[Rfam]
RNA: mir-17 microRNA precursor family
Organism: Acinonyx jubatus
RNA sequence: CUUGCGGUACCAAAGUGCUCAUAGUGCAGGUAGUGUUGGCUUUACUCUACUGUAGUGUGGGCACUUCCAGUACUCUUGG
Dot-bracket structure: ...(.((.((..(((((((((((.(((.(((((.............)))))))).)))))))))))...)).)).)...
Numbered sequence: 001c002u003u004g005c006g007g008u009a010c011c012a013a014a015g016u017g018c019u020c021a022u023a024g025u026g027c028a029g030g031u032a033g034u035g036u037u038g039g040c041u042u043u044a045c046u047c048u049a050c051u052g053u054a055g056u057g058u059g060g061g062c063a064c065u066u067c068c069a070g071u072a073c074u075c076u077u078g079g
Stems, first nucleotide, its partner, number of pairs: 004076001006074002009071002013066011025054003029051005